The record is a 25-nucleotide sequence from Dictyocaulus viviparus, which matches "CRISPR RNA direct repeat element" in Rfam. The family's consensus secondary structure was predicted with WAR.
RNA sequence: CUUUCAAUUUUAUCUGUGUUGUUAC
Dot-bracket structure: ....((((.........))))....